[Rfam]
RNA sequence: CUCUGCGUGAAAACGCAGGGCCUAUAAAGAG
Numbered sequence: 001c002u003c004u005g006c007g008u009g010a011a012a013a014c015g016c017a018g019g020g021c022c023u024a025u026a027a028a029g030a031g
Stems, first nucleotide, its partner, number of pairs: 001020008
Dot-bracket structure: ((((((((....))))))))...........

The family of this 31-nucleotide RNA is "L31-Firmicutes ribosomal protein leader". It is one of the family's seed sequences. Clan: Ribosomal Protein L31 Leader clan. The base pairs follow the family's consensus structure, which is taken from published work.